[Rfam]
RNA sequence: GCGUGGGUCGGCCCGCUGUACUGGAUCCAGUGGGCUGGGGGACGCCGCCGCCUCAUUCCCCGCGGGCGGCGGAACGGUCCGGGAGGCGAAUGCCGCCUCCCGGACUGUC
Numbered sequence: 001g002c003g004u005g006g007g008u009c010g011g012c013c014c015g016c017u018g019u020a021c022u023g024g025a026u027c028c029a030g031u032g033g034g035c036u037g038g039g040g041g042a043c044g045c046c047g048c049c050g051c052c053u054c055a056u057u058c059c060c061c062g063c064g065g066g067c068g069g070c071g072g073a074a075c076g077g078u079c080c081g082g083g084a085g086g087c088g089a090a091u092g093c094c095g096c097c098u099c100c101c102g103g104a105c106u107g108u109c
Stems, first nucleotide, its partner, number of pairs: 001108002006075001008073001009037010038043001045072009076106013
Rfam assigns this 109-nucleotide RNA from Streptomyces albiflaviniger to the family "Streptomyces RNA 4115". From the family's description: Identified by deep sequencing of transcriptome at the end of exponential growth phase. Sequencing size consistent with notrthern blot size. It scores 115 bits against the family's covariance model. Pairs were carried over by alignment from the consensus structure. NCBI's taxonomy places the organism under Bacteria, Actinomycetota, Actinomycetes, Kitasatosporales, Streptomyces. It is annotated as a small RNA.